mir-29 microRNA precursor family: a 66-nucleotide sequence from Acanthoscelides obtectus. Pairs were carried over by alignment from the consensus structure, which was predicted with PFOLD. The match comes from Rfam's covariance-model search (53 bits).
[Rfam]
RNA sequence: UGAGUACUGUUUUCUUAUGGUGUAAAGAUUAUGUUCGAUUCUAGCACCAUACGAAAUCAGUGCUUG
Numbered sequence: 001u002g003a004g005u006a007c008u009g010u011u012u013u014c015u016u017a018u019g020g021u022g023u024a025a026a027g028a029u030u031a032u033g034u035u036c037g038a039u040u041c042u043a044g045c046a047c048c049a050u051a052c053g054a055a056a057u058c059a060g061u062g063c064u065u066g
Stems, first nucleotide, its partner, number of pairs: 001066004007060003011056004017050006026042003

This family represents the microRNA (miRNA) precursors mir-29. Gene Ontology terms of the family: gene silencing by miRNA and RISC complex.